[Rfam]
RNA: permuted transfer-messenger RNA
Organism: Rhodocyclaceae bacterium
RNA sequence: GGUUGUAAUUCCGGUGCUCUGGAGGCGUUUCGGACAGGGGUUCGAUUCCCCUCACCUCCACCCGAAACCAUGCCAAGCGUGAUUUCUGGUGGGGGUGUACUGGUUUCGACGGGGCGAGCGAAGGCGUGCAGGCAACCCGAAAGGCGACGGACGUAAUCCGCGCAAAACCACAAACGCCAACGAUGAGCGUUUUGCAAUGGCCGCUUGA
Number, nucleotide and partner (000 for none) at each position: 001g137002g136003u135004u134005g133006u000007a000008a000009u000010u000011c000012c000013g000014g127015u126016g125017c124018u000019c000020u000021g000022g000023a000024g000025g000026c116027g115028u114029u000030u112031c111032g110033g000034a000035c000036a052037g051038g050039g049040g048041u000042u000043c000044g000045a000046u000047u000048c040049c039050c038051c037052u036053c097054a096055c095056c094057u093058c092059c091060a090061c089062c000063c000064g000065a000066a000067a000068c000069c000070a000071u000072g000073c000074c000075a000076a000077g000078c000079g000080u000081g000082a000083u000084u000085u000086c000087u000088g000089g061090u060091g059092g058093g057094g056095g055096u054097g053098u000099a000100c000101u000102g000103g000104u000105u000106u000107c000108g000109a000110c032111g031112g030113g000114g028115c027116g026117a000118g000119c000120g000121a000122a000123g000124g017125c016126g015127u014128g000129c000130a000131g000132g000133c005134a004135a003136c002137c001138c153139g152140a000141a000142a000143g000144g000145c000146g000147a000148c000149g000150g000151a000152c139153g138154u000155a000156a000157u000158c000159c000160g000161c000162g000163c000164a000165a000166a000167a000168c000169c000170a000171c000172a000173a000174a000175c000176g000177c000178c000179a000180a000181c000182g000183a000184u000185g000186a000187g000188c000189g000190u000191u000192u000193u000194g000195c000196a000197a000198u000199g000200g000201c000202c000203g000204c000205u000206u000207g000208a000